[Rfam]
Rfam assigns this 105-nucleotide RNA from Carnobacterium iners to the family "TPP riboswitch aptamer (THI element)". Vitamin B(1) in its active form thiamin pyrophosphate (TPP) is an essential coenzyme that is synthesised by coupling of pyrimidine and thiazole moieties in bacteria. The base pairs follow the family's consensus structure, which is taken from published work.
RNA sequence: AUAAUUAAACAGGGGAGUUUGUGAGCAGACUGAGAGGAAGUUAUCGACUUCGACCCUUAACCUGAUUUGGAUAAUGCCAACGUAGGAAGUUAUAAGCUAGACUUU
Numbered sequence: 001a002u003a004a005u006u007a008a009a010c011a012g013g014g015g016a017g018u019u020u021g022u023g024a025g026c027a028g029a030c031u032g033a034g035a036g037g038a039a040g041u042u043a044u045c046g047a048c049u050u051c052g053a054c055c056c057u058u059a060a061c062c063u064g065a066u067u068u069g070g071a072u073a074a075u076g077c078c079a080a081c082g083u084a085g086g087a088a089g090u091u092a093u094a095a096g097c098u099a100g101a102c103u104u105u
Base pairs, nucleotide, nucleotide: 008091009090010089011057012056013055014054017030018029019028020027021026037051038050039049040048041047061086062085063084064083067080068079069078070077